Rfam assigns this 81-nucleotide RNA from Ureibacillus manganicus to the family "c-di-GMP-I-GGC riboswitch aptamer".

RNA sequence: UUUGAAAAAGGCAAAUCUAUCGAAAGGUAGAGACGCAAAGUCACAGAUCUAAGGGAAACUAGGAUGGCUGGUCUACCAAAU
Number, nucleotide and partner (000 for none) at each position: 001u000002u000003u078004g077005a000006a000007a000008a000009a000010g000011g036012c035013a000014a000015a000016u031017c030018u029019a028020u027021c026022g000023a000024a000025a000026g021027g020028u019029a018030g017031a016032g000033a000034c067035g012036c011037a000038a000039a074040g073041u000042c071043a000044c070045a069046g068047a065048u064049c063050u000051a000052a000053g000054g000055g000056a000057a000058a000059c000060u000061a000062g000063g049064a048065u047066g000067g034068c046069u045070g044071g042072u000073c040074u039075a000076c000077c004078a003079a000080a000081u000
It scores 63 bits against the family's covariance model. Gene Ontology term of the family: cyclic-di-GMP binding.